[Rfam]
RNA sequence: GUCGGUUUUGAAACAGACAACGUAUGCGAGCAAUUUUAGUAAAGCAGUUUUCAGUUAAAGCGUUAUCUCAGAUAUCUCUUCUUCCUGACUUCCUUCUUGAGUGCCCCAUAAGUCUACCCUGUUGACAAACCUCGUGCCUUAACGGCUUUAUACUUAUUGAAGGAAAGACAAAUGUCUAAUAAAAUGACUGGUUUAGUAAAAUGGUUCAACGCUGAGAAAGGUUUCGGCUUUAUCUCUCCAACUGACGGCAGCAAAGACGUGUUCGUACACUUCUCUGCAAUCCAGAACCAGGGUUUCAAAACUCUGGAAGAAGGUCAGAAAGUUGAAUUCUCUAUCGAAAACGGCCAGAAAGGCCCGGCAGCUGCUAACGUAACUGCGCUGUAAUUCGAGAGAAAUUUCUGCCGCGACCUCGUCGGGCAGAAAAACAAAAACCCGCCUUAUGGCGGGUUUUUUGCG
Numbered sequence: 001g002u003c004g005g006u007u008u009u010g011a012a013a014c015a016g017a018c019a020a021c022g023u024a025u026g027c028g029a030g031c032a033a034u035u036u037u038a039g040u041a042a043a044g045c046a047g048u049u050u051u052c053a054g055u056u057a058a059a060g061c062g063u064u065a066u067c068u069c070a071g072a073u074a075u076c077u078c079u080u081c082u083u084c085c086u087g088a089c090u091u092c093c094u095u096c097u098u099g100a101g102u103g104c105c106c107c108a109u110a111a112g113u114c115u116a117c118c119c120u121g122u123u124g125a126c127a128a129a130c131c132u133c134g135u136g137c138c139u140u141a142a143c144g145g146c147u148u149u150a151u152a153c154u155u156a157u158u159g160a161a162g163g164a165a166a167g168a169c170a171a172a173u174g175u176c177u178a179a180u181a182a183a184a185u186g187a188c189u190g191g192u193u194u195a196g197u198a199a200a201a202u203g204g205u206u207c208a209a210c211g212c213u214g215a216g217a218a219a220g221g222u223u224u225c226g227g228c229u230u231u232a233u234c235u236c237u238c239c240a241a242c243u244g245a246c247g248g249c250a251g252c253a254a255a256g257a258c259g260u261g262u263u264c265g266u267a268c269a270c271u272u273c274u275c276u277g278c279a280a281u282c283c284a285g286a287a288c289c290a291g292g293g294u295u296u297c298a299a300a301a302c303u304c305u306g307g308a309a310g311a312a313g314g315u316c317a318g319a320a321a322g323u324u325g326a327a328u329u330c331u332c333u334a335u336c337g338a339a340a341a342c343g344g345c346c347a348g349a350a351a352g353g354c355c356c357g358g359c360a361g362c363u364g365c366u367a368a369c370g371u372a373a374c375u376g377c378g379c380u381g382u383a384a385u386u387c388g389a390g391a392g393a394a395a396u397u398u399c400u401g402c403c404g405c406g407a408c409c410u411c412g413u414c415g416g417g418c419a420g421a422a423a424a425a426c427a428a429a430a431a432c433c434c435g436c437c438u439u440a441u442g443g444c445g446g447g448u449u450u451u452u453u454g455c456g
Base pairs, nucleotide, nucleotide: 001018002017003016005014025240026239029237030236043231044230047229049227050226051221052220055219056218063215064214065213067211071207072206074205075204076203080174082172083171086170087169092163093162094161095160096159100120101119103117136146137145138144176191177190178189180187243337244336245335247333248332256264257263269323270322271321272320274319275318276317277316278314281308282307283306284305285304286303342357343356344355358382359381360380361379362376364374366373385421387420427452428451429450430449431448432447433446434445435444436443437442
The family of this 456-nucleotide RNA from Erwinia sp. 198 is "cspA thermoregulator". The organism belongs to Erwinia, within Bacteria. A reference for the family is Giuliodori et al. (2010), "The cspA mRNA is a thermosensor that modulates translation of the cold-shock protein CspA", Mol Cell. Its family is annotated with regulation of translation and response to temperature stimulus in the Gene Ontology. Rfam 15.1 lists 2,094 matches to the family in 1,285 species.